[Rfam]
RNA sequence: CCGUUGAGAACCCUUUGAAUCAAGUUGUUUGUAGUGAUUCAAAAGGUUCUCACAAAG
Numbered sequence: 001c002c003g004u005u006g007a008g009a010a011c012c013c014u015u016u017g018a019a020u021c022a023a024g025u026u027g028u029u030u031g032u033a034g035u036g037a038u039u040c041a042a043a044a045g046g047u048u049c050u051c052a053c054a055a056a057g
Base pairs, nucleotide, nucleotide: 005052006051007050008049009048010047011046012045014043015042016041017040018039019038020037021036022035